[Rfam]
RNA sequence: AGGAGGAGCGCUGGAUCCUGGGCUGUGUCCCGGCGCCCUGGGCUCUGGGCCUGCGCCUCUAGAAUCGCGCUCCCGGCCCCGCAGCCCCCU
Numbered sequence: 001a002g003g004a005g006g007a008g009c010g011c012u013g014g015a016u017c018c019u020g021g022g023c024u025g026u027g028u029c030c031c032g033g034c035g036c037c038c039u040g041g042g043c044u045c046u047g048g049g050c051c052u053g054c055g056c057c058u059c060u061a062g063a064a065u066c067g068c069g070c071u072c073c074c075g076g077c078c079c080c081g082c083a084g085c086c087c088c089c090u
Stems, first nucleotide, its partner, number of pairs: 001090003005086002010082002013078002017076002020073003024069004028063002032057005040051001042050003
RNA: mir-8799 microRNA precursor family
Organism: Vulpes vulpes